[Rfam]
Shown here is a 130-nucleotide RNA from Streptomyces sp. ADI93-02, a member of the family "Streptomyces RNA 5676".
Rfam classes the family as a small RNA.
Identified by deep sequencing of transcriptome at the end of exponential growth phase.
Lineage of the source: Bacteria > Actinomycetota > Kitasatosporales > Streptomycetaceae > Streptomyces.
RNA sequence: AGAUGAGAGAAACACCCCGCCCGCAGGGGACUGCGGGUGAUGCCGGGCCGACGCUCCCCCAGCGUCGUACCGGCCGUGCCAUCGCGCACACCGCUGGAGCUUCGGGCUCCGGGACUCCUCACCGAUCGGA
Numbered sequence: 001a002g003a004u005g006a007g008a009g010a011a012a013c014a015c016c017c018c019g020c021c022c023g024c025a026g027g028g029g030a031c032u033g034c035g036g037g038u039g040a041u042g043c044c045g046g047g048c049c050g051a052c053g054c055u056c057c058c059c060c061a062g063c064g065u066c067g068u069a070c071c072g073g074c075c076g077u078g079c080c081a082u083c084g085c086g087c088a089c090a091c092c093g094c095u096g097g098a099g100c101u102u103c104g105g106g107c108u109c110c111g112g113g114a115c116u117c118c119u120c121a122c123c124g125a126u127c128g129g130a
Base pairs, nucleotide, nucleotide: 004121005120006119007118009117010116018039019038020037021036022035023034024033025032026031042074043073044072045071046070049067050066051065052064053063054062076089077088078087079086094112095111096110097109098108099107100106122129123128